[Rfam]
RNA sequence: AGGGAUAAGUAAUACAACAUUCGUAUAUUCUUGGUGAUAUGGACUGAGAGUUUCUACCGGGAACCGGAAAAUCCUGACUACGAAUGGGCAGGAUAAGUCU
Dot-bracket structure: .................((((((((...(((((((.......)))))))........(((((.........)))))..))))))))..............
Numbered sequence: 001a002g003g004g005a006u007a008a009g010u011a012a013u014a015c016a017a018c019a020u021u022c023g024u025a026u027a028u029u030c031u032u033g034g035u036g037a038u039a040u041g042g043a044c045u046g047a048g049a050g051u052u053u054c055u056a057c058c059g060g061g062a063a064c065c066g067g068a069a070a071a072u073c074c075u076g077a078c079u080a081c082g083a084a085u086g087g088g089c090a091g092g093a094u095a096a097g098u099c100u
Stems, first nucleotide, its partner, number of pairs: 018086008029049007058076005
The record is a 100-nucleotide sequence from Ectobacillus ponti, which matches "Purine riboswitch aptamer" in Rfam. Pairs were carried over by alignment from the consensus structure, which is taken from published work.